[Rfam]
RNA sequence: UUAUAAGAGACAUUUCACCUUUUUAGAUUCAUUGAAAAAUUAAUGUAUCUGGUCUAUAAUAUAGGUCAGAUACAUUAACUAUUCAAUGAAUCUAAAAAGGUGAAGUGUCUCUUAUAA
Numbered sequence: 001u002u003a004u005a006a007g008a009g010a011c012a013u014u015u016c017a018c019c020u021u022u023u024u025a026g027a028u029u030c031a032u033u034g035a036a037a038a039a040u041u042a043a044u045g046u047a048u049c050u051g052g053u054c055u056a057u058a059a060u061a062u063a064g065g066u067c068a069g070a071u072a073c074a075u076u077a078a079c080u081a082u083u084c085a086a087u088g089a090a091u092c093u094a095a096a097a098a099g100g101u102g103a104a105g106u107g108u109c110u111c112u113u114a115u116a117a
Stems, first nucleotide, its partner, number of pairs: 002116006009109005015103003019099008028090009038080001040078006050068004
Rfam assigns this 117-nucleotide RNA sequence from Trifolium pratense to the family "MIR2593 microRNA precursor family". A search with the family's covariance model found it, with a score of 97 bits. The family's consensus secondary structure was predicted with RNAalifold.